[Rfam]
RNA sequence: AUGUGUCUGAGAGAGCUUCCUUCAGUCCACUCAUGGAUGGCUCUGGGGUUUGAAUCAACUGCCGACUCAUUCAUUCAAACACUCAGUAGAAGGCUGAGCUACUCUGUGAAUGAGUAAAUGAUGCGGGAGAUUAUUCUCUCUCUUCCAUUCCAUACUUGGACUGAAGGGAGCUCCCUCUUUCUCAUCU
Dot-bracket structure: ............((((((((..(((((((......(......................((.(((...((((....(...................................)....))))...))).))....................)......)))))))..))))))))..............
RNA: MIR159 microRNA precursor family
Organism: Ensete ventricosum